[Rfam]
This 63-nucleotide RNA from Xylophilus rhododendri belongs to the Rfam family "Betaproteobacteria toxic small RNA". It scores 70 bits against the family's covariance model. NCBI's taxonomy places the organism under Bacteria, Pseudomonadati, Betaproteobacteria, Burkholderiales, Xylophilus. Pairs were carried over by alignment from the consensus structure, which was predicted with WAR. From the family's description: Overexpression in amino aid rich medium attenuates growth, suggesting role in repressing amino acid intake and metabolism.
RNA sequence: UGUCUCCUCCACCUCCUCCUUUGGUGGAUUUAGCCCCGAGUCGCAAGACUCGGGGCUUUUUUC
Numbered sequence: 001u002g003u004c005u006c007c008u009c010c011a012c013c014u015c016c017u018c019c020u021u022u023g024g025u026g027g028a029u030u031u032a033g034c035c036c037c038g039a040g041u042c043g044c045a046a047g048a049c050u051c052g053g054g055g056c057u058u059u060u061u062u063c
Stems, first nucleotide, its partner, number of pairs: 008028006033056008